[Rfam]
RNA sequence: AAAUAUUGUGCUUUACGUAAACUCUGUGAUAACUCUGUAGGCAUUACUUCGAACUAGACGUUAGAACAUACAGAAAAUGACAGCCCUUCUACGAGUGAUUAGCCUGGUCGUGAUUAGCGUGGUGGUGAUUAUUAUCCCACCGUGCGGGGCUGCACUUGGAGAGAGAAAGGCUUAAAAAUCAAGCCUGAAUCGAAAAGAACCCCCGCACCGAAAGGUCCGGGGGUUUUUUGUUGACUGAAGAAUGUAAAGCGAGGAGCAGAGUAUGUGUUGCAGAAUAAAAUGCUGUUUCUCCGGUAAUGA
Number, nucleotide and partner (000 for none) at each position: 001a000002a000003a000004u000005a000006u032007u031008g030009u029010g000011c028012u000013u026014u000015a000016c000017g022018u000019a000020a000021a000022c017023u000024c000025u000026g013027u000028g011029a009030u008031a007032a006033c000034u000035c000036u000037g071038u070039a069040g000041g067042c000043a000044u063045u000046a000047c000048u000049u000050c060051g059052a000053a000054c000055u000056a000057g000058a000059c051060g050061u000062u000063a044064g000065a000066a000067c041068a000069u039070a038071c037072a000073g000074a000075a000076a000077a000078u000079g000080a000081c000082a000083g000084c000085c254086c253087u252088u000089c249090u248091a000092c000093g000094a243095g000096u000097g000098a000099u238100u237101a236102g235103c000104c000105u233106g232107g231108u000109c119110g118111u117112g000113a000114u000115u000116a000117g111118c110119g109120u000121g141122g140123u139124g138125g137126u000127g136128a135129u134130u000131a000132u000133u000134a129135u128136c127137c125138c124139a123140c122141c121142g000143u160144g000145c158146g157147g156148g155149g000150c000151u000152g000153c000154a000155c148156u147157u146158g145159g000160a143161g000162a000163g191164a190165g000166a000167a000168a000169g186170g185171c000172u183173u182174a000175a000176a000177a000178a000179u000180c000181a000182a173183g172184c000185c170186u169187g000188a000189a000190u164191c163192g000193a000194a229195a228196a227197g226198a225199a224200c223201c222202c221203c220204c219205g218206c000207a216208c215209c214210g000211a000212a000213a000214g209215g208216u207217c000218c205219g204220g203221g202222g201223g200224u199225u198226u197227u196228u195229u194230g000231u107232u106233g105234a000235c102236u101237g100238a099239a000240g000241a000242a000243u094244g000245u000246a000247a000248a090249g089250c000251g000252a087253g086254g085255a287256g286257c285258a284259g283260a000261g281262u000263a276264u275265g000266u000267g000268u000269u000270g000271c000272a000273g000274a000275a264276u263277a000278a000279a000280a000281u261282g000283c259284u258285g257286u256287u255288u000289c000290u000291c000292c000293g000294g000295u000296a000297a000298u000299g000300a000